A member of the RNA family "Small Cajal body specific RNA 4" from Cricetulus griseus, 145 nucleotides long.
The family's consensus secondary structure was predicted with RNAfold.
Lineage of the source: Eukaryota > Metazoa > Bilateria > Gnathostomata > Cricetulus.
It scores 95 bits against the family's covariance model.
About the family: scaRNAs are a specific class of small nuclear RNAs which localise to the Cajal bodies and guide the modification of RNA polymerase II transcribed spliceosomal RNAs U1, U2, U4, U5 and U12. ACA26 belongs to the H/ACA box class of guide RNAs as it has the predicted hairpin-hinge-hairpin-tail structure, conserved H/ACA-box motifs and is found associated with GAR1.
RNA sequence: ACUGGAGGACCAAGAAGGCUGAGUCUGAUGAAGCAAGACUUUGCUGAUACACUCCUCCUACACAAAGGAGUGGAGAAAGCAGCCCUUAUCAGAAAAAAAAAAAAAAAAAAAAAAAAAACAGGGUUAACUAUAAUAUCCAACUUUU
Numbered sequence: 001a002c003u004g005g006a007g008g009a010c011c012a013a014g015a016a017g018g019c020u021g022a023g024u025c026u027g028a029u030g031a032a033g034c035a036a037g038a039c040u041u042u043g044c045u046g047a048u049a050c051a052c053u054c055c056u057c058c059u060a061c062a063c064a065a066a067g068g069a070g071u072g073g074a075g076a077a078a079g080c081a082g083c084c085c086u087u088a089u090c091a092g093a094a095a096a097a098a099a100a101a102a103a104a105a106a107a108a109a110a111a112a113a114a115a116a117a118a119c120a121g122g123g124u125u126a127a128c129u130a131u132a133a134u135a136u137c138c139a140a141c142u143u144u145u
Base pairs, nucleotide, nucleotide: 003060004058005057006056007055008054009053017045018044019043021041022040023039024038025037026036067138068137069136078129079128081125082124083123084122085121086120